[Rfam]
RNA: mir-34 microRNA precursor family
RNA sequence: GGUUUGCAGGCAGUGUAGUUAGCUGAUUGUACCCCCCGUGCCACAAUCACUAACUUCACUGCCACCAAAAC
Numbered sequence: 001g002g003u004u005u006g007c008a009g010g011c012a013g014u015g016u017a018g019u020u021a022g023c024u025g026a027u028u029g030u031a032c033c034c035c036c037c038g039u040g041c042c043a044c045a046a047u048c049a050c051u052a053a054c055u056u057c058a059c060u061g062c063c064a065c066c067a068a069a070a071c
Base pairs, nucleotide, nucleotide: 003069004068005067006066009063010062012060013059014058015057017055018054019053020052021051022050024049025048026047027046028045029044030043